This 65-nucleotide sequence from Herbaspirillum seropedicae belongs to the Rfam family "Betaproteobacteria toxic small RNA". Pairs were carried over by alignment from the consensus structure, which was predicted with WAR. Taxonomically the source falls in Herbaspirillum seropedicae (Bacteria, Betaproteobacteria, Oxalobacteraceae, Herbaspirillum). It scores 68 bits against the family's covariance model. Rfam's curators write: Overexpression in amino aid rich medium attenuates growth, suggesting role in repressing amino acid intake and metabolism.
RNA sequence: UGUCUCCUCCACCCUCCUCAAUGGUGUGGAUUAAACCCGGAACCACAGUGUCCGGGUUUUUUUUG
Numbered sequence: 001u002g003u004c005u006c007c008u009c010c011a012c013c014c015u016c017c018u019c020a021a022u023g024g025u026g027u028g029g030a031u032u033a034a035a036c037c038c039g040g041a042a043c044c045a046c047a048g049u050g051u052c053c054g055g056g057u058u059u060u061u062u063u064u065g
Stems, first nucleotide, its partner, number of pairs: 008030005013024002034058008